The record is a 92-nucleotide RNA sequence from Pogona vitticeps, which matches "Small nucleolar RNA SNORD90" in Rfam. It scores 50 bits against the family's covariance model. From the family's description: snoRNA HBII-295 belongs to the family of C/D snoRNAs. Rfam classes the family as a C/D-box small nucleolar RNA. Its family is annotated with RNA processing and nucleolus in the Gene Ontology. The source organism's lineage runs through Eukaryota, Amniota, Squamata, Amphibolurinae and Pogona. A reference for the family is Huttenhofer et al. (2001), "RNomics: an experimental approach that identifies 201 candidates for novel, small, non-messenger RNAs in mouse", EMBO J.

[Rfam]
Nucleotides: 092
Stems, first nucleotide, its partner, number of pairs: 001092006016082002019079004025070002029066001032065002035062001037060009
Number, partner (000 for none) and nucleotide at each position: 001092g002091u003090g004089u005088c006087u007000g008000g009000g010000g011000a012000u013000g014000a015000a016082g017081c018000u019079g020078c021077a022076u023000a024000g025070g026069g027000c028000a029066g030000a031000u032065u033064c034000u035062g036000a037060g038059c039058c040057g041056a042055g043054a044053g045052g046000u047000c048000c049000a050000g051000c052045c053044c054043u055042c056041u057040c058039g059038g060037c061000c062035c063000u064033g065032a066029u067000c068000u069026u070025c071000a072000g073000u074000u075000u076022a077021u078020g079019c080000u081017g082016c083000c084000u085000g086000a087006a088005g089004a090003c091002a092001c